[Rfam]
RNA sequence: UGCUCAUCGUAUCAUCCCCCAAACCAAGACCAAGGGGUUAUAAUGUCUUUUUAUCCACCAGUGAAGGGAUUGGUGGAAAUAUCGUAUCGC
Numbered sequence: 001u002g003c004u005c006a007u008c009g010u011a012u013c014a015u016c017c018c019c020c021a022a023a024c025c026a027a028g029a030c031c032a033a034g035g036g037g038u039u040a041u042a043a044u045g046u047c048u049u050u051u052u053a054u055c056c057a058c059c060a061g062u063g064a065a066g067g068g069a070u071u072g073g074u075g076g077a078a079a080u081a082u083c084g085u086a087u088c089g090c
Stems, first nucleotide, its partner, number of pairs: 014038005026049005055076007
Shown here is a 90-nucleotide sequence, a member of the family "PhotoRC-II RNA". The sequence is in the family's curated seed alignment. The base pairs follow the family's consensus structure, which is taken from published work. Rfam classes the family as a cis-regulatory element.